[Rfam]
RNA: c-di-AMP riboswitch aptamer (ydaO/yuaA leader)
RNA sequence: AUGUUUAAAGCGCUGAAUCAAUUUGAGCGGGAGAACCAAUUUUUGGGGUGAGUCUUGUCUUUAAGACAAGUAGGGUUAGUUUCUUCGACCCGAAUCCGUCAGCUAAUCUCGUAAGCGUUGAAGAGAAGUUUU
Numbered sequence: 001a002u003g004u005u006u007a008a009a010g011c012g013c014u015g016a017a018u019c020a021a022u023u024u025g026a027g028c029g030g031g032a033g034a035a036c037c038a039a040u041u042u043u044u045g046g047g048g049u050g051a052g053u054c055u056u057g058u059c060u061u062u063a064a065g066a067c068a069a070g071u072a073g074g075g076u077u078a079g080u081u082u083c084u085u086c087g088a089c090c091c092g093a094a095u096c097c098g099u100c101a102g103c104u105a106a107u108c109u110c111g112u113a114a115g116c117g118u119u120g121a122a123g124a125g126a127a128g129u130u131u132u
Stems, first nucleotide, its partner, number of pairs: 011117004018026003027112006037045002046097003054070004073091004